[Rfam]
RNA sequence: UGAAACCCCAGAGGAGUGAACCUGAGAACAGAGGGUGGCGUUGGCUUAAAUUUGAUUUGCAUUGCUGCUGCCUGCUCCUGCCAUACAUUAAAUCAAAAAGAUUGUAUGUGGCCAACGCACCUUGUGUUCUCAGGUCACCCCUUUGGGAAUUCA
Numbered sequence: 001u002g003a004a005a006c007c008c009c010a011g012a013g014g015a016g017u018g019a020a021c022c023u024g025a026g027a028a029c030a031g032a033g034g035g036u037g038g039c040g041u042u043g044g045c046u047u048a049a050a051u052u053u054g055a056u057u058u059g060c061a062u063u064g065c066u067g068c069u070g071c072c073u074g075c076u077c078c079u080g081c082c083a084u085a086c087a088u089u090a091a092a093u094c095a096a097a098a099a100g101a102u103u104g105u106a107u108g109u110g111g112c113c114a115a116c117g118c119a120c121c122u123u124g125u126g127u128u129c130u131c132a133g134g135u136c137a138c139c140c141c142u143u144u145g146g147g148a149a150u151u152c153a
Stems, first nucleotide, its partner, number of pairs: 007147002011143004016138004024131007032123006
Rfam assigns this 153-nucleotide RNA from Citrus unshiu to the family "MIR398 microRNA precursor family". Taxonomically the source falls in Citrus (Eukaryota, Tracheophyta, Spermatophyta, malvids).